[Rfam]
RNA sequence: CGCCGAGUCGGAGGCUUCGGGACGCACCGGAGCCUGGUGCAAAAAGGGA
Number, nucleotide and partner (000 for none) at each position: 001c000002g000003c000004c000005g000006a000007g000008u000009c000010g000011g000012a000013g034014g033015c032016u031017u030018c029019g028020g027021g000022a000023c000024g000025c000026a000027c020028c019029g018030g017031a016032g015033c014034c013035u000036g000037g000038u000039g000040c000041a000042a000043a000044a000045a000046g000047g000048g000049a000
Source information:
Shown here is a 49-nucleotide RNA from Streptomyces apricus, a member of the family "raiA-hairpin RNA". Rfam classes the family as a small RNA. The source organism's lineage runs through Bacteria, Bacillati, Actinomycetota, Kitasatosporales and Streptomyces. The family's consensus secondary structure is taken from published work. A search with the family's covariance model found it, with a score of 61 bits.